[Rfam]
RNA sequence: AUUAAUUGAAGUUCGAUCAAAACCGCCACGUCCUGUGGCAACGUCGAACGGACCCACUCGUGUGGG
Numbered sequence: 001a002u003u004a005a006u007u008g009a010a011g012u013u014c015g016a017u018c019a020a021a022a023c024c025g026c027c028a029c030g031u032c033c034u035g036u037g038g039c040a041a042c043g044u045c046g047a048a049c050g051g052a053c054c055c056a057c058u059c060g061u062g063u064g065g066g
Stems, first nucleotide, its partner, number of pairs: 011049007025039005053066005
RNA: Bacillaceae-1 RNA